[Rfam]
Rfam assigns this 201-nucleotide RNA to the family "manA RNA". From the family's description: manA RNA has been located in 5'UTR regions of genes of mannose or fructose metabolism. Has been proposed as a cis-regulatory element and as a riboswitch candidate for his complex secondary structure.
RNA sequence: UAGAGAACUGAUCAUUCUCUAUAGGGUAUGCCAGAAUAACAGAUGUGGUCAUGCACUCUGUAAUGGUGAAGUAAGUCAGGGGUGGUGCCCGCUGUGGAAGCACAGAACUCUAACCAAGAGGACUGAAAAGAAUGAGGAUCACUAUUACUACUAGUGAGACCAUCUUCAUUGAGGGUAUAGUAAAAUCCCUCUACCCAACCA
Numbered sequence: 001u002a003g004a005g006a007a008c009u010g011a012u013c014a015u016u017c018u019c020u021a022u023a024g025g026g027u028a029u030g031c032c033a034g035a036a037u038a039a040c041a042g043a044u045g046u047g048g049u050c051a052u053g054c055a056c057u058c059u060g061u062a063a064u065g066g067u068g069a070a071g072u073a074a075g076u077c078a079g080g081g082g083u084g085g086u087g088c089c090c091g092c093u094g095u096g097g098a099a100g101c102a103c104a105g106a107a108c109u110c111u112a113a114c115c116a117a118g119a120g121g122a123c124u125g126a127a128a129a130g131a132a133u134g135a136g137g138a139u140c141a142c143u144a145u146u147a148c149u150a151c152u153a154g155u156g157a158g159a160c161c162a163u164c165u166u167c168a169u170u171g172a173g174g175g176u177a178u179a180g181u182a183a184a185a186u187c188c189c190u191c192u193a194c195c196c197a198a199c200c201a
Stems, first nucleotide, its partner, number of pairs: 001021006024196005031066002040060004045056003072127001074124004079090003083116004092105005108120003133168007145157004150181003171191005
Rfam classes the family as a cis-regulatory element. The sequence is in the family's curated seed alignment.